[Rfam]
RNA sequence: CCUUGUAGUUUUCCACAGCUUUCUUGAACUGCAUGCAGUAAUCCUUUGUGCCGGCGAAGGUGCAUGCGAUAGUACGGACUGUCGUCGCACACGCCCUUUUUUCUUGUAGUGUGGAAGAACUGAGUGUGUGACUCUGUAUCUAAAUUGCAGUUCAAUAAAGCUGUGGGAAAUUACAGUGA
Numbered sequence: 001c002c003u004u005g006u007a008g009u010u011u012u013c014c015a016c017a018g019c020u021u022u023c024u025u026g027a028a029c030u031g032c033a034u035g036c037a038g039u040a041a042u043c044c045u046u047u048g049u050g051c052c053g054g055c056g057a058a059g060g061u062g063c064a065u066g067c068g069a070u071a072g073u074a075c076g077g078a079c080u081g082u083c084g085u086c087g088c089a090c091a092c093g094c095c096c097u098u099u100u101u102u103c104u105u106g107u108a109g110u111g112u113g114g115a116a117g118a119a120c121u122g123a124g125u126g127u128g129u130g131a132c133u134c135u136g137u138a139u140c141u142a143a144a145u146u147g148c149a150g151u152u153c154a155a156u157a158a159a160g161c162u163g164u165g166g167g168a169a170a171u172u173a174c175a176g177u178g179a
Base pairs, nucleotide, nucleotide: 003176004175005174006173007172013166014165015164017162018161019160020159021158022157024155025154026153027152029150030149031148032147033146
A member of the RNA family "MIR396 microRNA precursor family" from Zingiber officinale, 179 nucleotides long. NCBI's taxonomy places the organism under Eukaryota, Streptophytina, Magnoliopsida, Petrosaviidae, Zingiber. On this family, see Sunkar et al., Plant Cell 2005: "Cloning and characterization of microRNAs from rice". Its family is annotated with RISC complex and miRNA-mediated post-transcriptional gene silencing in the Gene Ontology. A search with the family's covariance model found it, with a score of 81 bits.